[Rfam]
RNA: mir-67 microRNA precursor family
Organism: Tetranychus urticae
RNA sequence: AAAAAGCCUUCCUCACUCAAUCGGGUGGUGGUGUGAGAGCAGUUUCGAGCUUUUACUAAUUUCAUCACAACCUCCUUGAGUGAGUGAGGCUUUCA
Numbered sequence: 001a002a003a004a005a006g007c008c009u010u011c012c013u014c015a016c017u018c019a020a021u022c023g024g025g026u027g028g029u030g031g032u033g034u035g036a037g038a039g040c041a042g043u044u045u046c047g048a049g050c051u052u053u054u055a056c057u058a059a060u061u062u063c064a065u066c067a068c069a070a071c072c073u074c075c076u077u078g079a080g081u082g083a084g085u086g087a088g089g090c091u092u093u094c095a
Stems, first nucleotide, its partner, number of pairs: 009086001012084009024072002028068003033065006